[Rfam]
RNA sequence: GUGGACAUGCCGGAGUGGUGUUAUCGGGCAUAACUAGAAAUCAUGUGGGCUUUGCCCGCGCAGGUUCGAAUCAUGCCGUUUACG
Numbered sequence: 001g002u003g004g005a006c007a008u009g010c011c012g013g014a015g016u017g018g019u020g021u022u023a024u025c026g027g028g029c030a031u032a033a034c035u036a037g038a039a040a041u042c043a044u045g046u047g048g049g050c051u052u053u054g055c056c057c058g059c060g061c062a063g064g065u066u067c068g069a070a071u072c073a074u075g076c077c078g079u080u081u082a083c084g
Stems, first nucleotide, its partner, number of pairs: 001083006010027004030044002033041001060076003064072001
Notes:
tRNA: an 84-nucleotide RNA. The sequence is in the family's curated seed alignment.